[Rfam]
RNA sequence: CUUGACGGAGCCGAGCCACAGGGGCAGGUCGGCAUCGCGGUCCUGGCCGUACGUGGCGAGCAGCGCCUGUGCCUC
Dot-bracket structure: ..............(((.....)))......((....((...((..(((....)))..))...))...)).....
Numbered sequence: 001c002u003u004g005a006c007g008g009a010g011c012c013g014a015g016c017c018a019c020a021g022g023g024g025c026a027g028g029u030c031g032g033c034a035u036c037g038c039g040g041u042c043c044u045g046g047c048c049g050u051a052c053g054u055g056g057c058g059a060g061c062a063g064c065g066c067c068u069g070u071g072c073c074u075c
Stems, first nucleotide, its partner, number of pairs: 015025003032070002038065002043060002047056003